[Rfam]
ZMP/ZTP riboswitch aptamer (pfl RNA motif): an 84-nucleotide RNA from Paenibacillus rhizosphaerae. NCBI's taxonomy places the organism under Bacteria, Bacillati, Bacillota, Caryophanales, Paenibacillus. A search with the family's covariance model found it, with a score of 63 bits. The family has 185 seed sequences and 3,295 matches in Rfam 15.1.
RNA sequence: UGGACUGUGUGCGACUGGCGGAAACAUGGGAUGAACCAUGAGGGAGCACAUGGAUAUAAACAGCCGUACGCCUGGGCAGAGGUA
Numbered sequence: 001u002g003g004a005c006u007g008u009g010u011g012c013g014a015c016u017g018g019c020g021g022a023a024a025c026a027u028g029g030g031a032u033g034a035a036c037c038a039u040g041a042g043g044g045a046g047c048a049c050a051u052g053g054a055u056a057u058a059a060a061c062a063g064c065c066g067u068a069c070g071c072c073u074g075g076g077c078a079g080a081g082g083u084a
Stems, first nucleotide, its partner, number of pairs: 003055001005053008015043002017072004026039004061079001063077003